[Rfam]
RNA sequence: UCGCAGCCAGUUAAGCCGACUGUGCUCUUUUCCCCAUGGGGGCCUGGUGUGCAGUGGCUGCAAACACAGGCUCCUUGGUAGUGUAGUGUAUGAGCCUGUUGCCAGUAUGCGUUGCCCUAAGGGAUGUUGGAUUCAGCC
Number, nucleotide and partner (000 for none) at each position: 001u000002c000003g052004c051005a050006g000007c000008c000009a000010g000011u000012u000013a000014a000015g000016c000017c000018g000019a048020c047021u046022g045023u000024g000025c042026u041027c040028u039029u000030u000031u000032c000033c000034c000035c000036a000037u000038g000039g028040g027041g026042g025043c000044c000045u022046g021047g020048u019049g000050u005051g004052c003053a000054g000055u000056g000057g000058c000059u000060g000061c000062a000063a000064a000065c000066a000067c000068a000069g000070g000071c000072u000073c000074c000075u000076u000077g000078g125079u124080a000081g000082u000083g000084u000085a000086g000087u000088g000089u000090a000091u000092g000093a113094g112095c111096c000097u109098g000099u000100u000101g000102c000103c000104a000105g000106u000107a000108u000109g097110c000111g095112u094113u093114g000115c000116c000117c000118u000119a000120a000121g000122g000123g000124a079125u078126g000127u000128u000129g000130g000131a000132u000133u000134c000135a000136g000137c000138c000
RNA: Small nucleolar RNA SNORA70